[Rfam]
RNA sequence: UCCGGAAUAUCGCACCCACCCACAUGUGGCAGGAGCGGGGGACCCAGGUACUGCGCCGUUCCGUGAUCCCGGACGGCUCGGGGUGAAGCCGUGUCCCCAGCGCGGCCGGGCAGCUCCAGCCCGAACCCGACAGCUCACCUCGCAGGCGGCGGAGAGGAAUGAG
Numbered sequence: 001u002c003c004g005g006a007a008u009a010u011c012g013c014a015c016c017c018a019c020c021c022a023c024a025u026g027u028g029g030c031a032g033g034a035g036c037g038g039g040g041g042a043c044c045c046a047g048g049u050a051c052u053g054c055g056c057c058g059u060u061c062c063g064u065g066a067u068c069c070c071g072g073a074c075g076g077c078u079c080g081g082g083g084u085g086a087a088g089c090c091g092u093g094u095c096c097c098c099a100g101c102g103c104g105g106c107c108g109g110g111c112a113g114c115u116c117c118a119g120c121c122c123g124a125a126c127c128c129g130a131c132a133g134c135u136c137a138c139c140u141c142g143c144a145g146g147c148g149g150c151g152g153a154g155a156g157g158a159a160u161g162a163g
Stems, first nucleotide, its partner, number of pairs: 001034003035143006045080001081128003089105004108122004
RNA: c-di-AMP riboswitch aptamer (ydaO/yuaA leader)
Organism: Streptomyces wuyuanensis